RNA sequence: CUCGUUCAUUCACUCUAAAUGUAGCAGUGAACGGAAGUAGGAAAUUAAUCCGAAGGAACGCAUC
Numbered sequence: 001c002u003c004g005u006u007c008a009u010u011c012a013c014u015c016u017a018a019a020u021g022u023a024g025c026a027g028u029g030a031a032c033g034g035a036a037g038u039a040g041g042a043a044a045u046u047a048a049u050c051c052g053a054a055g056g057a058a059c060g061c062a063u064c
Stems, first nucleotide, its partner, number of pairs: 003060005009031005034061001040051003

Shown here is a 64-nucleotide RNA sequence, a member of the family "Glutamine riboswitch aptamer (glnA leader)". Rfam's curators put it in the seed alignment. A reference for the family is Ames and Breaker (2011), "Bacterial aptamers that selectively bind glutamine", RNA Biol. Gene Ontology term of the family: glutamine binding.